[Rfam]
RNA sequence: GGAUGGGUGGCCGAGUGGUCGAAGGCACUGGUCUUGAAAACCAGCGUAGGGCAACCUACCGUGGGUUCGAAUCCCACCCCAUCCG
Numbered sequence: 001g002g003a004u005g006g007g008u009g010g011c012c013g014a015g016u017g018g019u020c021g022a023a024g025g026c027a028c029u030g031g032u033c034u035u036g037a038a039a040a041c042c043a044g045c046g047u048a049g050g051g052c053a054a055c056c057u058a059c060c061g062u063g064g065g066u067u068c069g070a071a072u073c074c075c076a077c078c079c080c081a082u083c084c085g
Base pairs, nucleotide, nucleotide: 001084002083003082004081005080006079007078010026011025012024028044029043030042031041032040061077062076063075064074065073